[Rfam]
RNA sequence: UGAGGCCACUCUGGAAAGCAGGCUCUCGUAAGCCUCACCCAAGGUGAAAGCCGUGCUCACGUGCGGUGAAACUCUCAGGUGCCAUGACAGAGGGGGAGUU
Numbered sequence: 001u002g003a004g005g006c007c008a009c010u011c012u013g014g015a016a017a018g019c020a021g022g023c024u025c026u027c028g029u030a031a032g033c034c035u036c037a038c039c040c041a042a043g044g045u046g047a048a049a050g051c052c053g054u055g056c057u058c059a060c061g062u063g064c065g066g067u068g069a070a071a072c073u074c075u076c077a078g079g080u081g082c083c084a085u086g087a088c089a090g091a092g093g094g095g096g097a098g099u100u
Stems, first nucleotide, its partner, number of pairs: 006095002009092005020035004037080003041075001044074001046072001050067005